About this RNA: Small nucleolar RNA SNORA44: a 131-nucleotide RNA from Pluvianellus socialis. The family's consensus secondary structure was predicted with PFOLD. The source organism's lineage runs through Eukaryota, Saurischia, Neoaves, Charadriiformes and Pluvianellus. From the family's description: ACA44 is a member of the H/ACA class of snoRNA that guide the sites of modification of uridines to pseudouridines. By type it is an H/ACA-box small nucleolar RNA. Rfam links the family to the GO terms nucleolus and RNA processing. It scores 82 bits against the family's covariance model.
[Rfam]
RNA sequence: CUGCAUGUUUAUCCAAGAGCUGUGGCUCCAUCCCGUAGCUACAGGUCUCCAACAACAUGCGAGAGCAACGGGAAGGUCUUUGACUGCUGGGCUGCCUUUGCCUCUUGCUGUCACUCGCCCCUCCUAUAGAU
Numbered sequence: 001c002u003g004c005a006u007g008u009u010u011a012u013c014c015a016a017g018a019g020c021u022g023u024g025g026c027u028c029c030a031u032c033c034c035g036u037a038g039c040u041a042c043a044g045g046u047c048u049c050c051a052a053c054a055a056c057a058u059g060c061g062a063g064a065g066c067a068a069c070g071g072g073a074a075g076g077u078c079u080u081u082g083a084c085u086g087c088u089g090g091g092c093u094g095c096c097u098u099u100g101c102c103u104c105u106u107g108c109u110g111u112c113a114c115u116c117g118c119c120c121c122u123c124c125u126a127u128a129g130a131u
Base pairs, nucleotide, nucleotide: 013044018040019039020038021037022036023035024034071124072123073122075120076119086111087110089104090101